This 99-nucleotide RNA from Salinisphaera orenii belongs to the Rfam family "t44 RNA". It is annotated as a small RNA. From the family's description: This family consists of a number of bacterial RNA genes of between 135 and 170 bases in length. It scores 65 bits against the family's covariance model.
[Rfam]
RNA sequence: CUCGACCGCCGAAAAUACACACGCGCUUCGGCACAUGAGACGGGGUGCCGGUCGGCAUGACGUCGACGGGUUGUCUCAUGGGAGGCGCGGAGGAUCAAC
Numbered sequence: 001c002u003c004g005a006c007c008g009c010c011g012a013a014a015a016u017a018c019a020c021a022c023g024c025g026c027u028u029c030g031g032c033a034c035a036u037g038a039g040a041c042g043g044g045g046u047g048c049c050g051g052u053c054g055g056c057a058u059g060a061c062g063u064c065g066a067c068g069g070g071u072u073g074u075c076u077c078a079u080g081g082g083a084g085g086c087g088c089g090g091a092g093g094a095u096c097a098a099c
Stems, first nucleotide, its partner, number of pairs: 022089008034080009047071003051067003